The record is an 82-nucleotide sequence from Ixodes scapularis, which matches "mir-67 microRNA precursor family" in Rfam. The base pairs follow the family's consensus structure, which was predicted with RNAalifold. Its family is annotated with RISC complex and miRNA-mediated post-transcriptional gene silencing in the Gene Ontology. NCBI's taxonomy places the organism under Eukaryota, Metazoa, Ixodida, Ixodoidea, Ixodes.

RNA sequence: GGAGGGCCUUCCUCACUCAGUUUGGCUGUGGUGUAACGGGCGCUCGACCCAUCACAACCUCCUUGAGUGAGUGAGGCCUCGC
Number, nucleotide and partner (000 for none) at each position: 001g000002g000003a000004g000005g000006g000007c000008c000009u073010u000011c000012c071013u070014c069015a068016c067017u066018c065019a064020g063021u000022u000023u000024g059025g058026c000027u056028g055029u054030g053031g052032u051033g050034u000035a000036a000037c000038g000039g000040g000041c000042g000043c000044u000045c000046g000047a000048c000049c000050c033051a032052u031053c030054a029055c028056a027057a000058c025059c024060u000061c000062c000063u020064u019065g018066a017067g016068u015069g014070a013071g012072u000073g009074a000075g000076g000077c000078c000079u000080c000081g000082c000